[Rfam]
RNA sequence: CGCGUCGGCUGGACCGUCGCUCCAAUAGGGCCUCGGCCUCUGGCGGAGAGGAAAGUCCGGACACCGAAGGGCACCCCGCUCCAUGAAAAUGGAGGCGCCAGAGGCGUAGGCCUCCGGUGACGGCAUGUGCAGCAGAAAACAGACCAGCCGAUGGCCUUCGGGCACAGGUGAUGGGUGAAACGGUGGGGUAAGAGCCCACCAGCGCGUUCGGGCGACCGGCGCGGCUGGGUAAACCCCGGGGGGUGCAAGGCCACGCAGCGUUCCCUCUCUCGCGAGAGGCCAGGCGGCCCGCCUGGAGCGACGCGGGUAGGCCGCGCAGAUAGAUGACGGUCCACCGCUAGGGCGCGCCUCUGGCGGGGACAGAAUCCGGCUUACAGGCCGACGCGCACG
Numbered sequence: 001c002g003c004g005u006c007g008g009c010u011g012g013a014c015c016g017u018c019g020c021u022c023c024a025a026u027a028g029g030g031c032c033u034c035g036g037c038c039u040c041u042g043g044c045g046g047a048g049a050g051g052a053a054a055g056u057c058c059g060g061a062c063a064c065c066g067a068a069g070g071g072c073a074c075c076c077c078g079c080u081c082c083a084u085g086a087a088a089a090u091g092g093a094g095g096c097g098c099c100a101g102a103g104g105c106g107u108a109g110g111c112c113u114c115c116g117g118u119g120a121c122g123g124c125a126u127g128u129g130c131a132g133c134a135g136a137a138a139a140c141a142g143a144c145c146a147g148c149c150g151a152u153g154g155c156c157u158u159c160g161g162g163c164a165c166a167g168g169u170g171a172u173g174g175g176u177g178a179a180a181c182g183g184u185g186g187g188g189u190a191a192g193a194g195c196c197c198a199c200c201a202g203c204g205c206g207u208u209c210g211g212g213c214g215a216c217c218g219g220c221g222c223g224g225c226u227g228g229g230u231a232a233a234c235c236c237c238g239g240g241g242g243g244u245g246c247a248a249g250g251c252c253a254c255g256c257a258g259c260g261u262u263c264c265c266u267c268u269c270u271c272g273c274g275a276g277a278g279g280c281c282a283g284g285c286g287g288c289c290c291g292c293c294u295g296g297a298g299c300g301a302c303g304c305g306g307g308u309a310g311g312c313c314g315c316g317c318a319g320a321u322a323g324a325u326g327a328c329g330g331u332c333c334a335c336c337g338c339u340a341g342g343g344c345g346c347g348c349c350u351c352u353g354g355c356g357g358g359g360a361c362a363g364a365a366u367c368c369g370g371c372u373u374a375c376a377g378g379c380c381g382a383c384g385c386g387c388a389c390g
Stems, first nucleotide, its partner, number of pairs: 001386010011375001012332007020048004026042005053373003057370005062245004069290004074241005079094005095121001096119004122236002127234002129230002144174002147169003152164001154163003182200006202225001203223005209218003249313004259303004264298001281295005
Source information:
Bacterial RNase P class A: a 390-nucleotide RNA from Rubricoccus marinus. By type it is a ribozyme. The organism belongs to Rubricoccus, within Bacteria. A search with the family's covariance model found it, with a score of 172 bits. Rfam links the family to the GO terms tRNA processing, ribonuclease P activity and dimeric ribonuclease P complex.